[Rfam]
Nucleotides: 121
Stems, first nucleotide, its partner, number of pairs: 006043003009036002012033002018030004048088006055066003068082005089118003095109003
Number, partner (000 for none) and nucleotide at each position: 001000g002000a003000c004000g005000a006043g007042u008041c009036g010035a011000u012033u013032a014000a015000c016000u017000a018030a019029c020028g021027c022000g023000a024000g025000a026000u027021g028020c029019g030018u031000a032013u033012a034000u035010u036009u037000a038000u039000g040000a041008g042007a043006u044000a045000g046000a047000g048088g049087a050086c051085a052084u053083c054000c055066g056065c057064c058000u059000u060000a061000a062000g063000u064057g065056g066055c067000a068082a069081g070080u071079a072078c073000g074000g075000g076000a077000a078072g079071u080070a081069c082068u083053g084052a085051u086050g087049u088048u089118g090117g091116a092000c093000a094000u095109a096108c097107u098000g099000a100000u101000g102000u103000g104000a105000a106000c107097a108096g109095u110000u111000u112000a113000a114000u115000g116091u117090c118089c119000a120000c121000a
COG3610-DE RNA: a 121-nucleotide RNA sequence from Lactobacillus acidophilus.
Rfam's curators put it in the seed alignment.
Taxonomically the source falls in Lactobacillus acidophilus (Bacteria, Bacillati, Bacillota, Bacilli).